A member of the RNA family "Small nucleolar RNA SNORD17" from Sus scrofa, 237 nucleotides long. From the family's description: The snoRNA HBI-43 belongs to the C/D family of snoRNAs, guiding 2'O-ribose methylation at position U3797 of the 28S rRNA. Pseudouridylation in position U3797 is predicted to be guided by the H/ACA snoRNA ACA48. A reference for the family is Huttenhofer et al. (2001), "RNomics: an experimental approach that identifies 201 candidates for novel, small, non-messenger RNAs in mouse", EMBO J. The base pairs follow the family's consensus structure, which was predicted with RNAalifold.

RNA sequence: GUGAAGUGAUGAUUCAGUUUAUCCAUUCGCUGAGUGCGCUGCACUGACCUUCUUCCAAGCCUUGGUUCCUGUUCUAGGAAUUCUGGGCUCUGUAGCCUCCAAAUGCCAUGCAGUCUGCGGUGUUCUGCCGUUGACAGCUUGUGUGUUGGCGGACUACCGGUAAGAAUGGUUGGCGUCAGCAGGGAUGAGUCCCUGUGGGCCUCAUCUCUCUAAGAUGAGUGGUGGAAAUCUGAUCAC
Numbered sequence: 001g002u003g004a005a006g007u008g009a010u011g012a013u014u015c016a017g018u019u020u021a022u023c024c025a026u027u028c029g030c031u032g033a034g035u036g037c038g039c040u041g042c043a044c045u046g047a048c049c050u051u052c053u054u055c056c057a058a059g060c061c062u063u064g065g066u067u068c069c070u071g072u073u074c075u076a077g078g079a080a081u082u083c084u085g086g087g088c089u090c091u092g093u094a095g096c097c098u099c100c101a102a103a104u105g106c107c108a109u110g111c112a113g114u115c116u117g118c119g120g121u122g123u124u125c126u127g128c129c130g131u132u133g134a135c136a137g138c139u140u141g142u143g144u145g146u147u148g149g150c151g152g153a154c155u156a157c158c159g160g161u162a163a164g165a166a167u168g169g170u171u172g173g174c175g176u177c178a179g180c181a182g183g184g185a186u187g188a189g190u191c192c193c194u195g196u197g198g199g200c201c202u203c204a205u206c207u208c209u210c211u212a213a214g215a216u217g218a219g220u221g222g223u224g225g226a227a228a229u230c231u232g233a234u235c236a237c
Stems, first nucleotide, its partner, number of pairs: 010236005017229004023222007030214002034210001038180004042175001044173006050166005055160002058089005064083001065081006092157004097152002105144002107141001110138002113135003117131006182208008191199002